Rfam assigns this 98-nucleotide RNA sequence from Kineothrix alysoides to the family "S10-Clostridia ribosomal protein leader". The base pairs follow the family's consensus structure, which is taken from published work. The family's RNA type in Rfam is cis-regulatory leader. On this family, see Eckert and Weinberg, BMC Microbiol 2020: "Discovery of 20 novel ribosomal leader candidates in bacteria and archaea".
RNA sequence: UGAUAGCAAUGAAGCGUGAGGUUGCUGCCGAAAGGCAGGUUUUCCGUGGAGCGAAUGUCAAGAGAGCCGGAUAUAAUGGCUUAGGAAACUGACGACAA
Dot-bracket structure: .............(((.((((...(((((....)))))..)))))))........((((..(..............................))))).
Numbered sequence: 001u002g003a004u005a006g007c008a009a010u011g012a013a014g015c016g017u018g019a020g021g022u023u024g025c026u027g028c029c030g031a032a033a034g035g036c037a038g039g040u041u042u043u044c045c046g047u048g049g050a051g052c053g054a055a056u057g058u059c060a061a062g063a064g065a066g067c068c069g070g071a072u073a074u075a076a077u078g079g080c081u082u083a084g085g086a087a088a089c090u091g092a093c094g095a096c097a098a
Stems, first nucleotide, its partner, number of pairs: 014047003018044004025038005056097004062093001